[Rfam]
RNA sequence: CACUGACAUCAGCGAUUCGUUUUGCGAACCCUGACCGACCGCCAGAUAGGAAUGCAUCCCCAGCUCUUUCAUCUGUUGUUCGCCGAUAACUCGGGUGAUGACAUUCUUGCUGUAGCUGUCAGCCAACUGGCGCGCCUGAGAGGCGAGGUAAGCAGCGUUACAGAUAUUCGGUGGCAUAUUGCCGAGAUCUUUCGC
Numbered sequence: 001c002a003c004u005g006a007c008a009u010c011a012g013c014g015a016u017u018c019g020u021u022u023u024g025c026g027a028a029c030c031c032u033g034a035c036c037g038a039c040c041g042c043c044a045g046a047u048a049g050g051a052a053u054g055c056a057u058c059c060c061c062a063g064c065u066c067u068u069u070c071a072u073c074u075g076u077u078g079u080u081c082g083c084c085g086a087u088a089a090c091u092c093g094g095g096u097g098a099u100g101a102c103a104u105u106c107u108u109g110c111u112g113u114a115g116c117u118g119u120c121a122g123c124c125a126a127c128u129g130g131c132g133c134g135c136c137u138g139a140g141a142g143g144c145g146a147g148g149u150a151a152g153c154a155g156c157g158u159u160a161c162a163g164a165u166a167u168u169c170g171g172u173g174g175c176a177u178a179u180u181g182c183c184g185a186g187a188u189c190u191u192u193c194g195c
Base pairs, nucleotide, nucleotide: 005189006188012032014030016028017027018026019025020024033043035041050059062077063076064075078135079134081132082131083130084129085128087126092122094120095119096118097117099112100111102109103108136163137162138161140159141158143156144155167186168185169184170183171182172181
RNA: Yersinia sRNA 276
Organism: Escherichia coli